[Rfam]
RNA sequence: GUCAACUACCCACGGCUAAAGCCGAGGGCUUGAAACCCUUAGUUGACUAGCCUAAGCACUGUGAGUGCUACGUUACCCGUGAAUAUAUAGGUAUCUUGGGGUACUCCUCCAGCUCCAAGCACUACGGCUGGUGAUUAAACAGUUCUGAGGGGUAAGAACAGUGUUGCCAGUAAAAACUACGGGGUAACAUUGGCGAGGAGGUUUAA
Numbered sequence: 001g002u003c004a005a006c007u008a009c010c011c012a013c014g015g016c017u018a019a020a021g022c023c024g025a026g027g028g029c030u031u032g033a034a035a036c037c038c039u040u041a042g043u044u045g046a047c048u049a050g051c052c053u054a055a056g057c058a059c060u061g062u063g064a065g066u067g068c069u070a071c072g073u074u075a076c077c078c079g080u081g082a083a084u085a086u087a088u089a090g091g092u093a094u095c096u097u098g099g100g101g102u103a104c105u106c107c108u109c110c111a112g113c114u115c116c117a118a119g120c121a122c123u124a125c126g127g128c129u130g131g132u133g134a135u136u137a138a139a140c141a142g143u144u145c146u147g148a149g150g151g152g153u154a155a156g157a158a159c160a161g162u163g164u165u166g167c168c169a170g171u172a173a174a175a176a177c178u179a180c181g182g183g184g185u186a187a188c189a190u191u192g193g194c195g196a197g198g199a200g201g202u203u204u205a206a
Base pairs, nucleotide, nucleotide: 001047002046003045004044005043006042007041008040010028011027015022016021050194051193052192054190055069056068057067058066059065072188073187074186075185076184077182078181079180080179081178091125092124095119096118097117098116099115100114101113102112103204106201107200108199109198110197127171128170129169130168131167132166133165134164135163139162140161142159143158144157145156146155148153

This 206-nucleotide sequence from Natranaerobius thermophilus belongs to the Rfam family "HNH endonuclease-associated RNA and ORF (HEARO) RNA". The base pairs follow the family's consensus structure, which is taken from published work. Rfam 15.1 lists 952 matches to the family in 249 species. The source organism's lineage runs through Bacteria, Bacillota, Natranaerobiales, Natranaerobius and Natranaerobius thermophilus. It is one of the family's seed sequences.